[Rfam]
RNA sequence: ACCGCGCCUAGCUCGACGGGGCGAAAGCCGGGUGCCCUACCCGGUUGGCGCGGUUCCUAAAACAGGGC
Numbered sequence: 001a002c003c004g005c006g007c008c009u010a011g012c013u014c015g016a017c018g019g020g021g022c023g024a025a026a027g028c029c030g031g032g033u034g035c036c037c038u039a040c041c042c043g044g045u046u047g048g049c050g051c052g053g054u055u056c057c058u059a060a061a062a063c064a065g066g067g068c
Base pairs, nucleotide, nucleotide: 001054002053003052004051005050006049007048008047011022012021013020014019028044029043030042031041032040034068035067036066037065038064
The family of this 68-nucleotide RNA sequence from Burkholderia thailandensis is "int-alpA RNA". The base pairs follow the family's consensus structure, which is taken from published work. About the family: Acidobacteria (1 example), Planctomycetes (1 example), Proteobacteria.